[Rfam]
RNA sequence: GAUGUUAAGUAGGCACUUGCAGGCAAAAUGAAAUUCCAAUAGUUGACUGCUUUUUCCUACUUUACAUU
Numbered sequence: 001g002a003u004g005u006u007a008a009g010u011a012g013g014c015a016c017u018u019g020c021a022g023g024c025a026a027a028a029u030g031a032a033a034u035u036c037c038a039a040u041a042g043u044u045g046a047c048u049g050c051u052u053u054u055u056c057c058u059a060c061u062u063u064a065c066a067u068u
Stems, first nucleotide, its partner, number of pairs: 001068005007062007019050004024045003
Source information:
The family of this 68-nucleotide RNA sequence from Anopheles sinensis is "mir-2943 microRNA precursor family". Rfam 15.1 lists 9 matches to the family in 5 species. NCBI's taxonomy places the organism under Eukaryota, Opisthokonta, Insecta, Endopterygota, Myzorhynchus. A search with the family's covariance model found it, with a score of 81 bits.